[Rfam]
RNA sequence: UUGCUGGCCAACGGCAGGGUCUGAAGGAAGCCAUAGGAAGUUAGAAGUACACAACGAAAGUGAACCUGAUUCGGCAAUGCAGGAGGGUAAGCGUGCAAAAUAGCGUGAAGCCCGAUACUCGGUCAGUCCUGUAUUGUGCUUGAGGGUGGGAUUUCUAACAGGGAGCCGGU
Numbered sequence: 001u002u003g004c005u006g007g008c009c010a011a012c013g014g015c016a017g018g019g020u021c022u023g024a025a026g027g028a029a030g031c032c033a034u035a036g037g038a039a040g041u042u043a044g045a046a047g048u049a050c051a052c053a054a055c056g057a058a059a060g061u062g063a064a065c066c067u068g069a070u071u072c073g074g075c076a077a078u079g080c081a082g083g084a085g086g087g088u089a090a091g092c093g094u095g096c097a098a099a100a101u102a103g104c105g106u107g108a109a110g111c112c113c114g115a116u117a118c119u120c121g122g123u124c125a126g127u128c129c130u131g132u133a134u135u136g137u138g139c140u141u142g143a144g145g146g147u148g149g150g151a152u153u154u155c156u157a158a159c160a161g162g163g164a165g166c167c168g169g170u
Stems, first nucleotide, its partner, number of pairs: 001017006030170003042157006048150001050148003065145003069141001074137003078133007085113004091106004
RNA: Group II catalytic intron D1-D4-3